[Rfam]
The family of this 79-nucleotide RNA from Arabidopsis pedemontana is "Plastid-psbM 3UTR RNA".
Plastid psbM is a non-coding RNA (ncRNA) recognised in plastids.
Rfam classes the family as a cis-regulatory element.
RNA sequence: AGGGGUCCGCUAGUAUGGUAGAAGGAGAUCUCUUUCUACCAUACUAGCCUUGUAAUGUAUAAAGAUACAAGUGAAAUAU
Numbered sequence: 001a002g003g004g005g006u007c008c009g010c011u012a013g014u015a016u017g018g019u020a021g022a023a024g025g026a027g028a029u030c031u032c033u034u035u036c037u038a039c040c041a042u043a044c045u046a047g048c049c050u051u052g053u054a055a056u057g058u059a060u061a062a063a064g065a066u067a068c069a070a071g072u073g074a075a076a077u078a079u
Stems, first nucleotide, its partner, number of pairs: 009048018
A reference for the family is Richter et al. (2023), "Retrograde signaling in plants: A critical review focusing on the GUN pathway and beyond", Plant Commun.